[Rfam]
RNA sequence: UGAGUAUGAAAGAUGAUCGCGGGUGUCUUUGACAUCUGAGGAAAGUCCGGGCUCCGCAGGGCAGAUAUGCCGGAUAACGUCCGGCGAGGGUGACCUCAGGGAGAGUGCUAUAGAAAUUUAAACCGCCUGCUUGCAGGUAAGGAUGGAAAGGUACGGUAAGAGCGUACCAGCGUAUGGGUGACCAUGCGGCUUUGGUAAACCCCAUAUGGAGCAAGACCGAAUAGGGAAGGGAUGAAGCGGCCCGCUGAACCUUCCGGGUUGUGUCGCUUGAACCGGCAGGCAACUGCCGGUCUAGAUAAAUGAUUAUCACCGCUUAGGCGGAACAGAACUCGGCUUAAUGAUUACUCGUAGC
Dot-bracket structure: ((((((...(.(((((((.((((((((...))))))))....[[[.[[[[[((((...[[[[..((((((((((.....)))))(((((....)))).)((...(((((.............(((((((....)))))..)).......((((((.......))))))(.(((((((....)))))))..)..)))..)))))))))))))...((((......((((((.....(((.]]]])))...)))))).....).)))......((((((((....))))))))..........)))))))....................]]]]]]]]..)...))))))....
Numbered sequence: 001u002g003a004g005u006a007u008g009a010a011a012g013a014u015g016a017u018c019g020c021g022g023g024u025g026u027c028u029u030u031g032a033c034a035u036c037u038g039a040g041g042a043a044a045g046u047c048c049g050g051g052c053u054c055c056g057c058a059g060g061g062c063a064g065a066u067a068u069g070c071c072g073g074a075u076a077a078c079g080u081c082c083g084g085c086g087a088g089g090g091u092g093a094c095c096u097c098a099g100g101g102a103g104a105g106u107g108c109u110a111u112a113g114a115a116a117u118u119u120a121a122a123c124c125g126c127c128u129g130c131u132u133g134c135a136g137g138u139a140a141g142g143a144u145g146g147a148a149a150g151g152u153a154c155g156g157u158a159a160g161a162g163c164g165u166a167c168c169a170g171c172g173u174a175u176g177g178g179u180g181a182c183c184a185u186g187c188g189g190c191u192u193u194g195g196u197a198a199a200c201c202c203c204a205u206a207u208g209g210a211g212c213a214a215g216a217c218c219g220a221a222u223a224g225g226g227a228a229g230g231g232a233u234g235a236a237g238c239g240g241c242c243c244g245c246u247g248a249a250c251c252u253u254c255c256g257g258g259u260u261g262u263g264u265c266g267c268u269u270g271a272a273c274c275g276g277c278a279g280g281c282a283a284c285u286g287c288c289g290g291u292c293u294a295g296a297u298a299a300a301u302g303a304u305u306a307u308c309a310c311c312g313c314u315u316a317g318g319c320g321g322a323a324c325a326g327a328a329c330u331c332g333g334c335u336u337a338a339u340g341a342u343u344a345c346u347c348g349u350a351g352c
Stems, first nucleotide, its partner, number of pairs: 001348006010339001012308007020038008043336003047333005052211004059243004065207005070084005085099001086097004100202002105200002107196003123142002125138005150168006169191001171188007215265003218261001225255006236246003272291008
Bacterial RNase P class A: a 352-nucleotide RNA sequence from Pectinatus cerevisiiphilus. The match comes from Rfam's covariance-model search (276 bits). Rfam describes the family as follows. Ribonuclease P (RNase P) is a ubiquitous endoribonuclease, found in archaea, bacteria and eukarya as well as chloroplasts and mitochondria. By type it is a ribozyme. Its family is annotated with ribonuclease P activity, tRNA processing and dimeric ribonuclease P complex in the Gene Ontology.